[Rfam]
This 109-nucleotide RNA from Vulpes vulpes belongs to the Rfam family "mir-8834 microRNA precursor family". The family has 2 seed sequences and 13,926 matches in Rfam 15.1.
RNA sequence: AGGAGGAACAGCCACAGUGGCGGCGGCGGCCAGCUCUGGAGCCCUGGAGUUAGCUCCCGCAGGAACUACAGAGCUCUCCGUCUGCAGGGCCUGCAGGCUCCGGGGUGGG
Numbered sequence: 001a002g003g004a005g006g007a008a009c010a011g012c013c014a015c016a017g018u019g020g021c022g023g024c025g026g027c028g029g030c031c032a033g034c035u036c037u038g039g040a041g042c043c044c045u046g047g048a049g050u051u052a053g054c055u056c057c058c059g060c061a062g063g064a065a066c067u068a069c070a071g072a073g074c075u076c077u078c079c080g081u082c083u084g085c086a087g088g089g090c091c092u093g094c095a096g097g098c099u100c101c102g103g104g105g106u107g108g109g
Base pairs, nucleotide, nucleotide: 002101003100004099005098009093010092011091012089013088019082020081021080022079023078025076032075033074034073035072036071037070038069040067043063044062045061046060